[Rfam]
RNA sequence: GCCACGGUGGCCCAGUGGUACGGCGCCAGCCUUGAGAGCUGGUUCCCUUGUGGAUCGGGUGUUCGAAUCACCCCCGUGGCG
Numbered sequence: 001g002c003c004a005c006g007g008u009g010g011c012c013c014a015g016u017g018g019u020a021c022g023g024c025g026c027c028a029g030c031c032u033u034g035a036g037a038g039c040u041g042g043u044u045c046c047c048u049u050g051u052g053g054a055u056c057g058g059g060u061g062u063u064c065g066a067a068u069c070a071c072c073c074c075c076g077u078g079g080c081g
Stems, first nucleotide, its partner, number of pairs: 001080007010024003026042005057073005
Overview:
A member of the RNA family "tRNA" from Ferroplasma acidarmanus, 81 nucleotides long. The match comes from Rfam's covariance-model search (58 bits). The organism belongs to Ferroplasma acidarmanus, within Archaea. Rfam's curators write: Transfer RNA (tRNA) molecules are approximately 80 nucleotides in length.